[Rfam]
RNA sequence: GGCCCGUUGGUGAAGCGGUUAACACACAUGGUUUUCAUCCAUGGAUUCACGGGUUCGAUUCCCGUACGGGUCA
Numbered sequence: 001g002g003c004c005c006g007u008u009g010g011u012g013a014a015g016c017g018g019u020u021a022a023c024a025c026a027c028a029u030g031g032u033u034u035u036c037a038u039c040c041a042u043g044g045a046u047u048c049a050c051g052g053g054u055u056c057g058a059u060u061c062c063c064g065u066a067c068g069g070g071u072c073a
Stems, first nucleotide, its partner, number of pairs: 001072007010025003027043005049065005

The record is a 73-nucleotide RNA sequence from Mesomycoplasma flocculare, which matches "tRNA" in Rfam. A search with the family's covariance model found it, with a score of 62 bits. On this family, see Hou, Trends Biochem Sci 1993: "The tertiary structure of tRNA and the development of the genetic code". The family's RNA type in Rfam is transfer RNA.